[Rfam]
RNA sequence: CUGCUUCACCGGGGGUGUCUGGCGCUUUGCCAGGCUGAGAGAGUCCCCAAACCUGAUCUGGAUCAUGCCAGCGUAGGGAGCGUGAUGGGUUGGAUAU
Number, nucleotide and partner (000 for none) at each position: 001c000002u000003g000004c000005u000006u085007c084008a083009c082010c000011g048012g047013g046014g045015g000016u042017g035018u034019c033020u032021g031022g030023c029024g000025c000026u000027u000028u000029g023030c022031c021032a020033g019034g018035c017036u000037g000038a000039g000040a000041g000042a016043g000044u000045c014046c013047c012048c011049a000050a000051a000052c077053c076054u075055g074056a000057u000058c071059u070060g069061g068062a000063u000064c000065a000066u000067g000068c061069c060070a059071g058072c000073g000074u055075a054076g053077g052078g000079a000080g000081c000082g009083u008084g007085a006086u000087g000088g000089g000090u000091u000092g000093g000094a000095u000096a000097u000
RNA: TPP riboswitch aptamer (THI element)